RNA sequence: UCUAGAACUCAAGAUAUGAGCUGAAAACCGAACAGUGUCUGAGCUGCAGGACAGGUUCUGACUUCUCUGUUGUUGAUAAGAUUUGAACUUGAAAAUAGCAGAAUUGAGUCUUAGACUUUUCAUAAAAGUUUUAGGUCUAUGUCUUAUCUUUCCAUC
Dot-bracket structure: ..(.(((.(.((((((((.((((((.((......(((...(((.(..(((((.(((((((.((....(...(((...........)))...)....)))))))))..)))))..).))).)))....))))))).).)))))))))...))).)..
Numbered sequence: 001u002c003u004a005g006a007a008c009u010c011a012a013g014a015u016a017u018g019a020g021c022u023g024a025a026a027a028c029c030g031a032a033c034a035g036u037g038u039c040u041g042a043g044c045u046g047c048a049g050g051a052c053a054g055g056u057u058c059u060g061a062c063u064u065c066u067c068u069g070u071u072g073u074u075g076a077u078a079a080g081a082u083u084u085g086a087a088c089u090u091g092a093a094a095a096u097a098g099c100a101g102a103a104u105u106g107a108g109u110c111u112u113a114g115a116c117u118u119u120u121c122a123u124a125a126a127a128g129u130u131u132u133a134g135g136u137c138u139a140u141g142u143c144u145u146a147u148c149u150u151u152c153c154a155u156c
Stems, first nucleotide, its partner, number of pairs: 003154001005152003009146001011145008020136001021134005027129002035123003041119003045115001048112005054105007062098002068092001072088003
Rfam assigns this 156-nucleotide RNA from Populus deltoides to the family "MIR2912 microRNA precursor family". Gene Ontology terms of the family: RISC complex and miRNA-mediated post-transcriptional gene silencing. Lineage of the source: Eukaryota > Streptophyta > Embryophyta > fabids > Populus.